[Rfam]
Rfam assigns this 128-nucleotide RNA from Yoonia tamlensis to the family "Ruegeria cis8 sRNA".
The base pairs follow the family's consensus structure, which was predicted with RNAfold.
For this family Rfam cites "Experimental Identification of Small Non-Coding RNAs in the Model Marine Bacterium Ruegeria pomeroyi DSS-3" (Rivers et al., Front Microbiol, 2016).
The family has 2 seed sequences and 138 matches in Rfam 15.1.
Lineage of the source: Bacteria > Pseudomonadota > Alphaproteobacteria > Rhodobacterales > Yoonia.
RNA sequence: AUUGCAAGAACCUUGGCGAUGUAGGGGAUCAGCGGCAGGUUCAACACAAGCAAGACCAGAUUGCCGAUAAACAUCGACAUGAUAACUGCCCAGAAAAUCUGCGGCUCGUCUAUCAUAAGGCGUGGCCC
Numbered sequence: 001a002u003u004g005c006a007a008g009a010a011c012c013u014u015g016g017c018g019a020u021g022u023a024g025g026g027g028a029u030c031a032g033c034g035g036c037a038g039g040u041u042c043a044a045c046a047c048a049a050g051c052a053a054g055a056c057c058a059g060a061u062u063g064c065c066g067a068u069a070a071a072c073a074u075c076g077a078c079a080u081g082a083u084a085a086c087u088g089c090c091c092a093g094a095a096a097a098u099c100u101g102c103g104g105c106u107c108g109u110c111u112a113u114c115a116u117a118a119g120g121c122g123u124g125g126c127c128c
Stems, first nucleotide, its partner, number of pairs: 003018003007014002026128002029125003033122002036119001038114003043109001046106001050102003054098001061093003067087001073083003